The family of this 79-nucleotide RNA from Methylocystis echinoides is "Makes More Granules Regulator RNA (mmgR)".
[Rfam]
Nucleotides: 079
Base pairs, nucleotide, nucleotide: 008026009025011023043064044063045062046061047060048059049058050057051056
Number, partner (000 for none) and nucleotide at each position: 001000g002000g003000g004000g005000g006000u007000u008026g009025c010000c011023c012000u013000g014000c015000a016000a017000c018000c019000g020000c021000u022000c023011g024000a025009g026008c027000g028000u029000u030000u031000c032000c033000u034000c035000c036000c037000u038000g039000a040000c041000u042000u043064g044063g045062a046061c047060c048059g049058c050057g051056g052000g053000c054000u055000a056051c057050c058049g059048c060047g061046g062045u063044c064043c065000c066000u067000u068000u069000u070000u071000u072000u073000u074000g075000c076000a077000a078000a079000a
About the family: SuhB later renamed mmgR (makes more granules regulator) was a putative non-coding RNA found multiple times in the Agrobacterium tumefaciens genome and related alpha-proteobacteria. Other non-coding RNAs uncovered in the same analysis include: speF, ybhL, metA, and serC.Several studies inSinorhizobium meliloti showed that suhB element is indeed a non-coding RNA:firstly it was detected on Northern blot and called Sm8RNA, secondly in an RNAseq study referred to as SmelC689.The mutant phenotype's (strain lacking the small RNA) cytoplasm contains higher content of polyhydroxybutyrate (PBH)storage granules than wild type strain. The sRNA is required to limit the PBH intracellular accumulation when the nitrogen-fixing Sinorhizobium meliloti is under condition of surplus carbon in relation to nitrogen. It has been renamed to mmgR. Further study confirmed that mmgR fine-tunes the regulation of PBH storage.Northern blot confirmed the expression of the sRNA in other rhizobia species. MmgR homologues were found in most alpha-proteobacteria. NCBI's taxonomy places the organism under Bacteria, Pseudomonadota, Alphaproteobacteria, Methylocystaceae, Methylocystis. Rfam classes the family as a small RNA. Rfam links the family to the GO terms response to nitrogen compound, DNA-templated transcription, termination and protein binding. The family has 87 seed sequences and 1,791 matches in Rfam 15.1.